Archaeal large subunit ribosomal RNA: a 355-nucleotide part of an RNA from an uncultured archaeon. Its Rfam clan is "LSU clan". Rfam's curators put it in the seed alignment. Rfam links the family to the GO terms structural constituent of ribosome and ribosome. For this family Rfam cites "Crystal structure of the ribosome at 5.5 A resolution" (Yusupov et al., Science, 2001).

[Rfam]
RNA sequence: AUUAGUAGCAGCUUAGCAAGGUGAGAAUCCUUGCCGCCGAAAGGGCCAGGUUUCCUCGGCAAUGAUCGUCAGCCGAGGGUUAGUCGGUCCUAAGAUACAUCUUAACCGGAAUGUGUCAAAAGGGAAACAGGUUAAUAUUCCUGUACUCUUGCAUAGUGAAACCAACGCUUCAGGUUAACAUUUGCAGGCUCGUCUGCCUGUUCAAGCUAAUAGCCUCGUGGAGAACCGUAAUGGUGAGAAGCGGGGUAACAUGUGAUGACGUAAGAAAUGCCACCCUGGAGCCCAUGAAAAGGGAAUGCAAGAACCGUACCGAGAUCCGACACAGGUGCCCCUAGUUUAGUAGACUAAGGCGUGU
Numbered sequence: 001a002u003u004a005g006u007a008g009c010a011g012c013u014u015a016g017c018a019a020g021g022u023g024a025g026a027a028u029c030c031u032u033g034c035c036g037c038c039g040a041a042a043g044g045g046c047c048a049g050g051u052u053u054c055c056u057c058g059g060c061a062a063u064g065a066u067c068g069u070c071a072g073c074c075g076a077g078g079g080u081u082a083g084u085c086g087g088u089c090c091u092a093a094g095a096u097a098c099a100u101c102u103u104a105a106c107c108g109g110a111a112u113g114u115g116u117c118a119a120a121a122g123g124g125a126a127a128c129a130g131g132u133u134a135a136u137a138u139u140c141c142u143g144u145a146c147u148c149u150u151g152c153a154u155a156g157u158g159a160a161a162c163c164a165a166c167g168c169u170u171c172a173g174g175u176u177a178a179c180a181u182u183u184g185c186a187g188g189c190u191c192g193u194c195u196g197c198c199u200g201u202u203c204a205a206g207c208u209a210a211u212a213g214c215c216u217c218g219u220g221g222a223g224a225a226c227c228g229u230a231a232u233g234g235u236g237a238g239a240a241g242c243g244g245g246g247u248a249a250c251a252u253g254u255g256a257u258g259a260c261g262u263a264a265g266a267a268a269u270g271c272c273a274c275c276c277u278g279g280a281g282c283c284c285a286u287g288a289a290a291a292g293g294g295a296a297u298g299c300a301a302g303a304a305c306c307g308u309a310c311c312g313a314g315a316u317c318c319g320a321c322a323c324a325g326g327u328g329c330c331c332c333u334a335g336u337u338u339a340g341u342a343g344a345c346u347a348a349g350g351c352g353u354g355u
Stems, first nucleotide, its partner, number of pairs: 016034006035352004043331004049311002054078006063071002085307003089123002094117006100110003127144005147303008162293002167282008179270004184201005206254002215245005225235003260265001317326002333347004